transfer-messenger RNA: a 368-nucleotide RNA sequence from Daejeonella lutea. A search with the family's covariance model found it, with a score of 114 bits. Gene Ontology term of the family: RNA catabolic process. Rfam describes the family as follows. Bacterial tmRNA, also known as 10Sa RNA or SsrA, is named for its dual tRNA and mRNA-like properties. Its role is to liberate the mRNA from a stalled ribosome. To accomplish this part of the tmRNA is used as a reading frame that ends in a translation stop signal. The broken mRNA is replaced in the ribosome by the tmRNA and translation of the tmRNA leads to addition of a proteolysis tag to the incomplete protein enabling recognition by a protease. Recently a number of permuted tmRNA genes have been found encoded in two parts. tmRNAs have been identified in eubacteria and some chloroplasts but are absent from archaeal and eukaryote nuclear genomes. The literature on the family includes a 1996 paper in RNA by Williams and Bartel, "Phylogenetic analysis of tmRNA secondary structure".

[Rfam]
RNA sequence: GGGCCCGACCGGAAUUGACAGGAUGGAGAUAGGUAUGUAAGCAUGCAGCGCGUUGUGAGACUAGCGCUUAAAUCUGAACUCUCAAACCACAAUUGGCGAAAAUAACUACGCCUUAGCUGCCUAAUUUAGAAUUAGCAUAGCUUUUGUCCCGCUAGGUUCCGCUUUGUAGCUUAGCACCAGGGGCAUCGAACAACAAAGCUGGCCAGGGUUUAAUGGUGUGAUAACCCGGCAAGAUAAGACACCUACGGAAGAAGGUACAGGCGAGCGGUUGGCCUUCCCCUUCCCGACAAUAAAAUAACUGCUAAGCACGUAGAAAGCAUAAUUUGUCCCAUGUUUGGACGAGAGUUCGAAUCUCUCCGGGUCCACUU
Numbered sequence: 001g002g003g004c005c006c007g008a009c010c011g012g013a014a015u016u017g018a019c020a021g022g023a024u025g026g027a028g029a030u031a032g033g034u035a036u037g038u039a040a041g042c043a044u045g046c047a048g049c050g051c052g053u054u055g056u057g058a059g060a061c062u063a064g065c066g067c068u069u070a071a072a073u074c075u076g077a078a079c080u081c082u083c084a085a086a087c088c089a090c091a092a093u094u095g096g097c098g099a100a101a102a103u104a105a106c107u108a109c110g111c112c113u114u115a116g117c118u119g120c121c122u123a124a125u126u127u128a129g130a131a132u133u134a135g136c137a138u139a140g141c142u143u144u145u146g147u148c149c150c151g152c153u154a155g156g157u158u159c160c161g162c163u164u165u166g167u168a169g170c171u172u173a174g175c176a177c178c179a180g181g182g183g184c185a186u187c188g189a190a191c192a193a194c195a196a197a198g199c200u201g202g203c204c205a206g207g208g209u210u211u212a213a214u215g216g217u218g219u220g221a222u223a224a225c226c227c228g229g230c231a232a233g234a235u236a237a238g239a240c241a242c243c244u245a246c247g248g249a250a251g252a253a254g255g256u257a258c259a260g261g262c263g264a265g266c267g268g269u270u271g272g273c274c275u276u277c278c279c280c281u282u283c284c285c286g287a288c289a290a291u292a293a294a295a296u297a298a299c300u301g302c303u304a305a306g307c308a309c310g311u312a313g314a315a316a317g318c319a320u321a322a323u324u325u326g327u328c329c330c331a332u333g334u335u336u337g338g339a340c341g342a343g344a345g346u347u348c349g350a351a352u353c354u355c356u357c358c359g360g361g362u363c364c365a366c367u368u
Base pairs, nucleotide, nucleotide: 001364002363003362004361005360006359007358019337020336021335022334023332024331025330026329031324032323034321035320036319037318038317042310044308045307046306047068048067049066050065051064054084055083057081058080059079112140113139116136117135118134119133145185146184147183148182149181150180151175152174153173154172155171156170157169158168161199162198163197164196165195166194167193202230203229204228206226207225209223215243216242217241218240219239247285248284250282251281254278255277260274261273262272267299269298270297271296341357342356343355344354345353